RNA sequence: CCACGAUUGGAAUCAAGAUGCUUUGGUCGUGGUCGGAACAGCGCCGUGCACAAGGGGAUCUGCAAAGCACGGCACGUAAGCACUCAGAUGCGAAAGUAGGAACUGCGUUAGGCGUCCAGACGCAGGUAGCCCGAAUUUUAUAGCUGAUGAGCGUAGCGCGUUGCAGGGUGGCGGCCAAAAGGUCGUGAAAGCUACAGCACAGGG
Numbered sequence: 001c002c003a004c005g006a007u008u009g010g011a012a013u014c015a016a017g018a019u020g021c022u023u024u025g026g027u028c029g030u031g032g033u034c035g036g037a038a039c040a041g042c043g044c045c046g047u048g049c050a051c052a053a054g055g056g057g058a059u060c061u062g063c064a065a066a067g068c069a070c071g072g073c074a075c076g077u078a079a080g081c082a083c084u085c086a087g088a089u090g091c092g093a094a095a096g097u098a099g100g101a102a103c104u105g106c107g108u109u110a111g112g113c114g115u116c117c118a119g120a121c122g123c124a125g126g127u128a129g130c131c132c133g134a135a136u137u138u139u140a141u142a143g144c145u146g147a148u149g150a151g152c153g154u155a156g157c158g159c160g161u162u163g164c165a166g167g168g169u170g171g172c173g174g175c176c177a178a179a180a181g182g183u184c185g186u187g188a189a190a191g192c193u194a195c196a197g198c199a200c201a202g203g204g
Base pairs, nucleotide, nucleotide: 001032002031003030004029005028006027007026043073044072045071046070047069048068061165062164063163064162065161083151084150085149086148089147152197153195154194155193156192168186169185170184171183172182
RNA: PAGEV RNA